[Rfam]
RNA sequence: CUCACGGCGGUUUUCUGAUUCGCUUGGUACAGGUCGGGAACGGCUUCCCCGGCGAUGUCAGUUUGCCUCUUUUUGCAUCUCAGUCGAAGGUGAAACCAAUCGUUAUUCGGUGAUUACCGAUCCCGCCUUGUAUCAACUGAAUUGGAAACCGCUGUGAAU
Numbered sequence: 001c002u003c004a005c006g007g008c009g010g011u012u013u014u015c016u017g018a019u020u021c022g023c024u025u026g027g028u029a030c031a032g033g034u035c036g037g038g039a040a041c042g043g044c045u046u047c048c049c050c051g052g053c054g055a056u057g058u059c060a061g062u063u064u065g066c067c068u069c070u071u072u073u074u075g076c077a078u079c080u081c082a083g084u085c086g087a088a089g090g091u092g093a094a095a096c097c098a099a100u101c102g103u104u105a106u107u108c109g110g111u112g113a114u115u116a117c118c119g120a121u122c123c124c125g126c127c128u129u130g131u132a133u134c135a136a137c138u139g140a141a142u143u144g145g146a147a148a149c150c151g152c153u154g155u156g157a158a159u
Stems, first nucleotide, its partner, number of pairs: 014146002018142004024136010035125005041119002